[Rfam]
RNA sequence: AGUAAGACCAAGCUCAGUGUGCCAUUUCCUUGUCUGUAGCCAUGUCUAUGGGCUCUUGAGUUGGCCAUCUGAGCGAGGGCCUGCU
Numbered sequence: 001a002g003u004a005a006g007a008c009c010a011a012g013c014u015c016a017g018u019g020u021g022c023c024a025u026u027u028c029c030u031u032g033u034c035u036g037u038a039g040c041c042a043u044g045u046c047u048a049u050g051g052g053c054u055c056u057u058g059a060g061u062u063g064g065c066c067a068u069c070u071g072a073g074c075g076a077g078g079g080c081c082u083g084c085u
Stems, first nucleotide, its partner, number of pairs: 001085004006080001008078002012074006018067002021065004026060003032053008

Notes: A member of the RNA family "mir-571 microRNA precursor family" from Pan troglodytes, 85 nucleotides long. The sequence is in the family's curated seed alignment. Pairs were carried over by alignment from the consensus structure, which was predicted with RNAalifold.